Source information: The record is a 344-nucleotide part of an RNA from Chrysodeixis includens, which matches "Archaeal large subunit ribosomal RNA" in Rfam. The organism belongs to Chrysodeixis, within Eukaryota. A search with the family's covariance model found it, with a score of 1158 bits.

RNA sequence: UAACCGGUAAAGCGAAUCGUGAACAAUAAAUUGCAUGCGUUUUGCUCAAAAAAAAUGUUUAGGCGUUUAUUGUUAUUUUCAAGCAAAGGCUAUACACGUACAUUAUUAAUUUAAAUUAUUAUAGUUAUAGUUGAUAUUUUUAAAUGAUACUUAAAUAAACUGAAUCUUAGUAUUUGCCAUAUUUCAAAAGGGAAGCCGGUAGGAAUCGAGUUAUAUGGACCCUUCGCCACUGAUCUAAGGCUAAAUAUGACCGCGAGACCGAUAGCGAACAAGUACCGUGAGGGAAAGUUGAAAAGAACUUUGAAGAGAGAGUUCAAGAGUACGUGAAACCGUUCAGGGGUAAA
Numbered sequence: 001u002a003a004c005c006g007g008u009a010a011a012g013c014g015a016a017u018c019g020u021g022a023a024c025a026a027u028a029a030a031u032u033g034c035a036u037g038c039g040u041u042u043u044g045c046u047c048a049a050a051a052a053a054a055a056u057g058u059u060u061a062g063g064c065g066u067u068u069a070u071u072g073u074u075a076u077u078u079u080c081a082a083g084c085a086a087a088g089g090c091u092a093u094a095c096a097c098g099u100a101c102a103u104u105a106u107u108a109a110u111u112u113a114a115a116u117u118a119u120u121a122u123a124g125u126u127a128u129a130g131u132u133g134a135u136a137u138u139u140u141u142a143a144a145u146g147a148u149a150c151u152u153a154a155a156u157a158a159a160c161u162g163a164a165u166c167u168u169a170g171u172a173u174u175u176g177c178c179a180u181a182u183u184u185c186a187a188a189a190g191g192g193a194a195g196c197c198g199g200u201a202g203g204a205a206u207c208g209a210g211u212u213a214u215a216u217g218g219a220c221c222c223u224u225c226g227c228c229a230c231u232g233a234u235c236u237a238a239g240g241c242u243a244a245a246u247a248u249g250a251c252c253g254c255g256a257g258a259c260c261g262a263u264a265g266c267g268a269a270c271a272a273g274u275a276c277c278g279u280g281a282g283g284g285a286a287a288g289u290u291g292a293a294a295a296g297a298a299c300u301u302u303g304a305a306g307a308g309a310g311a312g313u314u315c316a317a318g319a320g321u322a323c324g325u326g327a328a329a330c331c332g333u334u335c336a337g338g339g340g341u342a343a344a
Base pairs, nucleotide, nucleotide: 011242012241013240019045020044021043024033025032026031057160058159059158067147068146069145082132083131084130088107092106093105094104110114118126173188174187175186176185198236199235276283277282